[Rfam]
A member of the RNA family "rncO" from Citrobacter freundii, 213 nucleotides long. This family represents a bacterial regulatory element (rncO) found in the rnc leader sequence. The rnc operon is negatively auto-regulated by transcript stability. rnc, the first gene in the operon codes for RNase III which cleaves the long rncO stem II leading to transcript degradation and a reduction in translation. On this family, see Matsunaga et al., RNA 1996: "RNase III autoregulation: structure and function of rncO, the posttranscriptional 'operator'". The family's RNA type in Rfam is cis-regulatory element.
RNA sequence: GUAGUUUUAGGUUGGCACCGUCAGGUUGCCACGGCACACGAAACAGCGUUGAUUCGUAUACAAGCGCAUUCAGGCGACGCCGAAACGGCUAACCGAGUGAUGUAUAUCAGGUCUGUUUCGUGUGCUGGAUUGUUGACGCAUUCAUUUAUUGGUAUCGCAUGAACCCCAUCGUAAUUAAUCGGCUUCAACGGAAGCUGGGCUACACUUUUAAUC
Numbered sequence: 001g002u003a004g005u006u007u008u009a010g011g012u013u014g015g016c017a018c019c020g021u022c023a024g025g026u027u028g029c030c031a032c033g034g035c036a037c038a039c040g041a042a043a044c045a046g047c048g049u050u051g052a053u054u055c056g057u058a059u060a061c062a063a064g065c066g067c068a069u070u071c072a073g074g075c076g077a078c079g080c081c082g083a084a085a086c087g088g089c090u091a092a093c094c095g096a097g098u099g100a101u102g103u104a105u106a107u108c109a110g111g112u113c114u115g116u117u118u119c120g121u122g123u124g125c126u127g128g129a130u131u132g133u134u135g136a137c138g139c140a141u142u143c144a145u146u147u148a149u150u151g152g153u154a155u156c157g158c159a160u161g162a163a164c165c166c167c168a169u170c171g172u173a174a175u176u177a178a179u180c181g182g183c184u185u186c187a188a189c190g191g192a193a194g195c196u197g198g199g200c201u202a203c204a205c206u207u208u209u210a211a212u213c
Base pairs, nucleotide, nucleotide: 013031014030015029016028017027018025019024032127033126034125035124036123037122038121039120040119041118042117043116044115045114046113054111055110056107057106058105059104060103061102069095073090074089075088179198180197181196182195183194184193185192186191